Shown here is a 217-nucleotide RNA sequence from Aquabacter sp. L1I39, a member of the family "Bradyrhizobiaceae sRNA BjrC174". It is annotated as a small RNA. The organism belongs to Aquabacter, within Bacteria. A reference for the family is Madhugiri et al. (2012), "Small RNAs of the Bradyrhizobium/Rhodopseudomonas lineage and their analysis", RNA Biol.
Nucleotides: 217
Stems, first nucleotide, its partner, number of pairs: 036179002041049002083165007090157011103142009121130002194213008
Number, partner (000 for none) and nucleotide at each position: 001000a002000u003000c004000a005000c006000g007000g008000g009000g010000u011000c012000g013000u014000c015000a016000a017000c018000g019000a020000a021000a022000a023000u024000c025000a026000c027000a028000c029000u030000c031000u032000c033000g034000u035000c036179c037178c038000a039000a040000u041049u042048g043000g044000g045000c046000c047000a048042u049041g050000c051000c052000c053000u054000c055000g056000c057000c058000g059000u060000c061000g062000c063000c064000g065000g066000g067000g068000g069000c070000g071000a072000a073000c074000u075000u076000c077000a078000u079000a080000c081000c082000c083165g084164u085163a086162g087161c088160a089159g090157g091156g092155c093154c094153g095152g096151u097150u098149c099148g100147c101000c102000g103142c104141c105140g106139c107138u108137c109136c110135g111134g112000u113000c114000u115000a116000u117000c118000c119000c120000a121130g122129c123000c124000c125000c126000c127000c128000a129122g130121c131000c132000c133000c134111c135110c136109g137108g138107g139106g140105c141104g142103g143000u144000g145000c146000a147100g148099c149098g150097g151096a152095c153094c154093g155092g156091c157090c158000a159089c160088u161087g162086c163085u164084a165083c166000a167000c168000a169000c170000u171000u172000c173000a174000a175000g176000a177000u178037g179036g180000u181000a182000c183000c184000c185000c186000u187000u188000c189000c190000u191000g192000a193000a194213a195212a196211g197210g198209u199208c200207g201206c202000u203000u204000c205000g206201g207200c208199g209198g210197c211196c212195u213194u214000u215000u216000u217000u